A member of the RNA family "radC RNA" from Roseateles aquatilis, 147 nucleotides long.
[Rfam]
RNA sequence: AAGCUAAGCCCAUGCGUUGCUGACUCCGUCAGCGCCAUGCCCAGGCAGCUCCGGUCUUCAAGGCUGCGCCGCGGAACCUUCCGCGUAGACCGAACCAGUCCGCUUCGCAUCGCCCGCGCGGACGCCGCCGAUACCUGGCGUCGAUGC
Number, nucleotide and partner (000 for none) at each position: 001a000002a000003g000004c000005u000006a000007a000008g000009c000010c000011c039012a038013u037014g036015c000016g000017u000018u000019g033020c032021u031022g030023a029024c028025u000026c000027c000028g024029u023030c022031a021032g020033c019034g000035c000036c014037a013038u012039g011040c000041c000042c000043a000044g000045g067046c066047a065048g064049c063050u062051c000052c000053g091054g090055u089056c088057u000058u000059c000060a000061a000062g050063g049064c048065u047066g046067c045068g000069c000070c085071g084072c083073g082074g081075a000076a000077c000078c000079u000080u000081c074082c073083g072084c071085g070086u000087a000088g056089a055090c054091c053092g000093a000094a000095c000096c000097a000098g000099u000100c000101c000102g000103c000104u000105u000106c000107g000108c000109a000110u000111c000112g000113c000114c000115c000116g000117c000118g147119c146120g145121g000122a000123c000124g000125c000126c140127g139128c138129c137130g136131a000132u000133a000134c000135c000136u130137g129138g128139c127140g126141u000142c000143g000144a000145u120146g119147c118
The family has 148 seed sequences and 500 matches in Rfam 15.1. The match comes from Rfam's covariance-model search (102 bits). NCBI's taxonomy places the organism under Bacteria, Pseudomonadati, Betaproteobacteria, Sphaerotilaceae, Roseateles.